[Rfam]
RNA sequence: GAAACGCGAACCAAGCGACGGCGUAAGCCGCGUGAGGCUUGGAGCUGGCCUCGGCAACGAGGCCAUGCA
Numbered sequence: 001g002a003a004a005c006g007c008g009a010a011c012c013a014a015g016c017g018a019c020g021g022c023g024u025a026a027g028c029c030g031c032g033u034g035a036g037g038c039u040u041g042g043a044g045c046u047g048g049c050c051u052c053g054g055c056a057a058c059g060a061g062g063c064c065a066u067g068c069a
Stems, first nucleotide, its partner, number of pairs: 011042005019030004046065008

The family of this 69-nucleotide sequence from Bifidobacterium longum is "Transposase-2 RNA". Pairs were carried over by alignment from the consensus structure, which is taken from published work. The family has 151 seed sequences and 214 matches in Rfam 15.1. By type it is a small RNA. Taxonomically the source falls in Bifidobacterium longum subsp. longum (Bacteria, Bifidobacteriaceae, Bifidobacterium, Bifidobacterium longum).